[Rfam]
RNA sequence: UGGCGCCCAACAUGUGGGUCCGAGCACGGGGGACUCCGUGAGGAACGCUGUUCGGAGAGCCGGCAAAAAAGAAAUUAAAAGGAGGAGGAGAUUAAACGGGAACCUGCCGUUUCUUCUGAACCUCGGUAAGUGAACAGCGAUUAUGGGACAAGAAAUAAGUCAGCAUGAAAUGUUCGUAGAGGGACUAAAACAGGCUUUAAAGGCACGAGGGGUAAAGGUUUCUGUAAAACAAUUGUUAAAAUAUUUUGAGUAUGUUAAGGAUGUUUGUCCGU
Dot-bracket structure: .....(((.....(((........)))..)))....(((.....))).................................((..(....((...(((((.......)))))...).)...).))......((..(..((....)).).)).....((((((...............................))).)))......(((((.((..((.(.(.......).).))......)).)))))........(.((((....)))).)
RNA: Mason-Pfizer monkey virus packaging signal
Organism: Cnephaeus nilssonii